A member of the RNA family "mir-219 microRNA precursor family" from Amphibalanus amphitrite, 71 nucleotides long.
Lineage of the source: Eukaryota > Panarthropoda > Communostraca > Balanomorpha > Amphibalanus.
[Rfam]
RNA sequence: AUGAGUUCUGAUUGUCCAAACGCAAUUCUUGUAUGUAUCACCAAGAAUAGUAUUUGGACAUCGCGGCUCGU
Number, nucleotide and partner (000 for none) at each position: 001a000002u070003g069004a068005g067006u066007u065008c000009u063010g062011a061012u060013u000014g059015u058016c057017c056018a055019a000020a000021c000022g051023c050024a000025a048026u047027u046028c045029u044030u043031g042032u000033a000034u000035g000036u000037a000038u000039c000040a000041c000042c031043a030044a029045g028046a027047a026048u025049a000050g023051u022052a000053u000054u000055u018056g017057g016058a015059c014060a012061u011062c010063g009064c000065g007066g006067c005068u004069c003070g002071u000